[Rfam]
RNA sequence: CGGAGCGCGGUUCGCAAACUCCCGCGUUAACAAAACUAGGAGGAU
Numbered sequence: 001c002g003g004a005g006c007g008c009g010g011u012u013c014g015c016a017a018a019c020u021c022c023c024g025c026g027u028u029a030a031c032a033a034a035a036c037u038a039g040g041a042g043g044a045u
Stems, first nucleotide, its partner, number of pairs: 006026005016037001